[Rfam]
MIR2617 microRNA precursor family: a 92-nucleotide RNA sequence from Medicago truncatula. Taxonomically the source falls in Medicago (Eukaryota, Embryophyta, Gunneridae, Trifolieae). Gene Ontology terms of the family: miRNA-mediated post-transcriptional gene silencing and RISC complex.
RNA sequence: UGGUAGUGUGACAUGCCCGUUGUGUUUUACUCUGAUUGUUGUGGAAUUAUUUUAUAUUUAAUUACUUUUGGGUAACGGGGUGUUACAUUCCU
Numbered sequence: 001u002g003g004u005a006g007u008g009u010g011a012c013a014u015g016c017c018c019g020u021u022g023u024g025u026u027u028u029a030c031u032c033u034g035a036u037u038g039u040u041g042u043g044g045a046a047u048u049a050u051u052u053u054a055u056a057u058u059u060a061a062u063u064a065c066u067u068u069u070g071g072g073u074a075a076c077g078g079g080g081u082g083u084u085a086c087a088u089u090c091c092u
Stems, first nucleotide, its partner, number of pairs: 002092002005089010016079008